[Rfam]
RNA: mir-544 microRNA precursor family
Organism: Piliocolobus tephrosceles
RNA sequence: AUCUUCUGGAGAACUUGUUAAAGUGCAGAUUUUGAGCCAGUAGGUCUGAAAGUCUGCAUUUCUAACAAGAUCCUAGGUGAUGCUGA
Numbered sequence: 001a002u003c004u005u006c007u008g009g010a011g012a013a014c015u016u017g018u019u020a021a022a023g024u025g026c027a028g029a030u031u032u033u034g035a036g037c038c039a040g041u042a043g044g045u046c047u048g049a050a051a052g053u054c055u056g057c058a059u060u061u062c063u064a065a066c067a068a069g070a071u072c073c074u075a076g077g078u079g080a081u082g083c084u085g086a
Base pairs, nucleotide, nucleotide: 003079005077009073011071014069015068016067017066018065019064020063021061022060023059025057026056027055028054029053031051032050033049